This 71-nucleotide RNA from Gossypium aridum belongs to the Rfam family "Small nucleolar RNA snoR99". The literature on the family includes a 2002 paper in Curr Biol by Marker et al., "Experimental RNomics: identification of 140 candidates for small non-messenger RNAs in the plant Arabidopsis thaliana".
Nucleotides: 071
Stems, first nucleotide, its partner, number of pairs: 006065006022051006
Number, partner (000 for none) and nucleotide at each position: 001000u002000a003000a004000c005000a006065u007064c008063c009062a010061u011060c012000u013000g014000a015000u016000c017000a018000c019000u020000u021000u022051g023050u024049c025048a026047g027046u028000u029000g030000c031000c032000u033000u034000u035000c036000c037000c038000a039000g040000u041000g042000g043000c044000a045000u046027g047026c048025u049024g050023a051022u052000c053000a054000u055000u056000a057000g058000a059000a060011g061010a062009u063008g064007g065006a066000a067000a068000a069000u070000g071000u

A search with the family's covariance model found it, with a score of 45 bits.